The record is a 118-nucleotide RNA from Erwinia mallotivora, which matches "STnc490 Hfq binding RNA" in Rfam. The base pairs follow the family's consensus structure, which was predicted with WAR. Taxonomically the source falls in Erwinia (Bacteria, Pseudomonadati, Gammaproteobacteria, Erwiniaceae). It scores 84 bits against the family's covariance model.
RNA sequence: AACCCCCAGCCAGGCUGGGGGUUCAAUAAAGUUUUCAGCUUUGGGCCAGUUAUAAAAAACCCCUUUUGAUUUGUUAAAACACCUUGCGGUCUGGCAACUGCGAAUGUCAGCUCGUAUG
Numbered sequence: 001a002a003c004c005c006c007c008a009g010c011c012a013g014g015c016u017g018g019g020g021g022u023u024c025a026a027u028a029a030a031g032u033u034u035u036c037a038g039c040u041u042u043g044g045g046c047c048a049g050u051u052a053u054a055a056a057a058a059a060c061c062c063c064u065u066u067u068g069a070u071u072u073g074u075u076a077a078a079a080c081a082c083c084u085u086g087c088g089g090u091c092u093g094g095c096a097a098c099u100g101c102g103a104a105u106g107u108c109a110g111c112u113c114g115u116a117u118g
Base pairs, nucleotide, nucleotide: 001023002022003021004020005019006018007017008016009015010014028042029041030040031039032038033037071116073111074110075109079107080106084103085102086101087100088099089098090097